[Rfam]
This 100-nucleotide RNA sequence from Buceros rhinoceros belongs to the Rfam family "Small nucleolar RNA SNORD16". Taxonomically the source falls in Buceros rhinoceros (Eukaryota, Teleostomi, Amniota, Sauria). A search with the family's covariance model found it, with a score of 90 bits. Its Rfam clan is "SNORD16 clan".
RNA sequence: UGCCGUGAUGUCGUAAUUUGCGCCUGACUCUGCGCUCAGCGGCAGUUGCCUGCUGCCAGUGUGCUGGUGCAGACAGCUGACGAACCGUUCACGCUGAGCA
Numbered sequence: 001u002g003c004c005g006u007g008a009u010g011u012c013g014u015a016a017u018u019u020g021c022g023c024c025u026g027a028c029u030c031u032g033c034g035c036u037c038a039g040c041g042g043c044a045g046u047u048g049c050c051u052g053c054u055g056c057c058a059g060u061g062u063g064c065u066g067g068u069g070c071a072g073a074c075a076g077c078u079g080a081c082g083a084a085c086c087g088u089u090c091a092c093g094c095u096g097a098g099c100a
Stems, first nucleotide, its partner, number of pairs: 001100003021082002024079001030072005039064002041057005